The family of this 477-nucleotide sequence from Winslowiella iniecta is "cspA thermoregulator". The match comes from Rfam's covariance-model search (140 bits).
RNA sequence: AACGAGGUACAGUUCUGCUUAUGUGUGGCAUUUUCAGUAAAGAAGUUCUGAGUAAAGACGUUGACGUUGAAUACCGCUUCCUUGCCGAACCUUAAAUUAGUGCCUCAUUCAGUAAUGUCUCUGGUUUCUCAGUAAGUAAGCCUCCGGGCGAAUAAAACAAUCUAAGGAAUUUGCAAAAUGGCAAAGAUUAAAGGUCAGGUUAAGUGGUUCAACGAGUCUAAAGGUUUUGGUUUCAUUACUCCUGCUGACGGCAGCAAAGAUGUGUUCGUACACUUCUCUGCAAUCCAGGGUAACGGCUUCAAAACUCUGGCUGAAGGCCAGAACGUUGAGUUCGAAAUUCAGGAUGGCCAGAAAGGUCCAGCUGCAGUUAACGUAACUGCAAUCUGAUUUUGAUCUCAGCCUCAGCGUUGUGGCUGAAUCCAUAACGCCGCUGAAUCUGAAUUGUGAAAGCCCCGUCAUUCGUGACGGGGCUUUUUU
Number, nucleotide and partner (000 for none) at each position: 001a014002a013003c012004g010005a000006g000007g000008u000009a000010c004011a000012g003013u002014u001015c000016u000017g000018c000019u000020u000021a000022u000023g242024u000025g000026u000027g240028g239029c000030a237031u000032u000033u000034u000035c000036a000037g000038u000039a000040a000041a000042g233043a000044a000045g232046u000047u230048c229049u224050g000051a000052g000053u000054a000055a000056a219057g218058a217059c216060g000061u000062u000063g000064a000065c214066g213067u212068u211069g210070a209071a000072u000073a208074c207075c206076g000077c000078u000079u180080c000081c000082u176083u175084g174085c173086c000087g000088a000089a000090c167091c166092u165093u164094a163095a000096a161097u000098u000099a129100g000101u000102g000103c000104c000105u000106c000107a000108u000109u000110c000111a000112g000113u000114a000115a000116u000117g000118u000119c000120u000121c000122u000123g000124g000125u000126u000127u000128c000129u099130c000131a000132g000133u000134a000135a000136g000137u000138a000139a000140g149141c148142c147143u000144c000145c000146g000147g142148g141149c140150g000151a000152a000153u000154a000155a000156a000157a000158c000159a000160a000161u096162c000163u094164a093165a092166g091167g090168a000169a000170u000171u000172u000173g085174c084175a083176a082177a000178a000179u000180g079181g000182c194183a000184a000185a000186g000187a000188u000189u000190a000191a000192a000193g000194g182195u000196c000197a000198g000199g000200u000201u000202a000203a000204g000205u000206g075207g074208u073209u070210c069211a068212a067213c066214g065215a000216g059217u058218c057219u056220a000221a000222a000223g000224g049225u000226u000227u000228u000229g048230g047231u000232u045233u042234c000235a000236u000237u030238a000239c028240u027241c000242c023243u000244g000245c000246u000247g339248a338249c000250g000251g000252c000253a000254g000255c000256a000257a000258a000259g267260a266261u000262g000263u000264g000265u000266u260267c259268g000269u000270a000271c000272a326273c325274u000275u323276c000277u322278c321279u320280g319281c317282a000283a000284u000285c310286c309287a308288g307289g306290g000291u000292a000293a000294c000295g000296g000297c000298u000299u000300c000301a000302a000303a000304a000305c000306u289307c288308u287309g286310g285311c000312u000313g000314a000315a000316g000317g281318c000319c280320a279321g278322a277323a275324c000325g273326u272327u000328g000329a000330g000331u000332u000333c000334g000335a000336a000337a000338u248339u247340c000341a000342g000343g000344a000345u360346g359347g358348c000349c000350a000351g000352a000353a000354a000355g000356g000357u000358c347359c346360a345361g384362c000363u382364g000365c379366a378367g377368u376369u375370a000371a000372c000373g000374u000375a369376a368377c367378u366379g365380c000381a000382a363383u000384c361385u000386g000387a442388u441389u440390u000391u000392g437393a436394u435395c000396u000397c000398a000399g000400c000401c000402u000403c000404a000405g000406c000407g000408u000409u000410g000411u000412g000413g000414c000415u000416g000417a000418a000419u000420c000421c000422a000423u000424a000425a000426c000427g000428c000429c000430g000431c000432u000433g000434a000435a394436u393437c392438u000439g000440a389441a388442u387443u000444g000445u000446g000447a474448a473449a472450g471451c470452c469453c468454c467455g466456u465457c464458a463459u000460u000461c000462g000463u458464g457465a456466c455467g454468g453469g452470g451471c450472u449473u448474u447475u000476u000477u000
Rfam links the family to the GO terms response to temperature stimulus and regulation of translation.